Shown here is a 248-nucleotide sequence from Halopseudomonas yangmingensis, a member of the family "sRNA regulator of biofilms A". On this family, see Taylor et al., PLoS One 2017: "A novel small RNA is important for biofilm formation and pathogenicity in Pseudomonas aeruginosa". NCBI's taxonomy places the organism under Bacteria, Pseudomonadati, Gammaproteobacteria, Pseudomonadaceae, Halopseudomonas.
[Rfam]
RNA sequence: ACCAGAGGCUCCUAUGAACCUCCGGAUCGGCUCCGAAACCAAAGGACCGAUGCGUGUCUCGACAGCCCAGAAGGCGGUUUGACAAGGUGGCGACUGGAACGAAAGUUGUCCUGAGGGACGGGGAAGCGAUUCAAACGUAUCAGCCUGCAUGACGGGUUCAGCCAGCCCGGCACCCGGUCGACAGCGACCAGCCGGUGGCACAGUCAUCACCUGUUCGUCACAGCCCCCCUUCUGAACGGUCUGCGUUC
Numbered sequence: 001a002c003c004a005g006a007g008g009c010u011c012c013u014a015u016g017a018a019c020c021u022c023c024g025g026a027u028c029g030g031c032u033c034c035g036a037a038a039c040c041a042a043a044g045g046a047c048c049g050a051u052g053c054g055u056g057u058c059u060c061g062a063c064a065g066c067c068c069a070g071a072a073g074g075c076g077g078u079u080u081g082a083c084a085a086g087g088u089g090g091c092g093a094c095u096g097g098a099a100c101g102a103a104a105g106u107u108g109u110c111c112u113g114a115g116g117g118a119c120g121g122g123g124a125a126g127c128g129a130u131u132c133a134a135a136c137g138u139a140u141c142a143g144c145c146u147g148c149a150u151g152a153c154g155g156g157u158u159c160a161g162c163c164a165g166c167c168c169g170g171c172a173c174c175c176g177g178u179c180g181a182c183a184g185c186g187a188c189c190a191g192c193c194g195g196u197g198g199c200a201c202a203g204u205c206a207u208c209a210c211c212u213g214u215u216c217g218u219c220a221c222a223g224c225c226c227c228c229c230u231u232c233u234g235a236a237c238g239g240u241c242u243g244c245g246u247u248c
Stems, first nucleotide, its partner, number of pairs: 002052001005022004010017002026051004032046003053154002058147001065075003077136002081130001083128001111123002163184001189213003194208006221243003225239002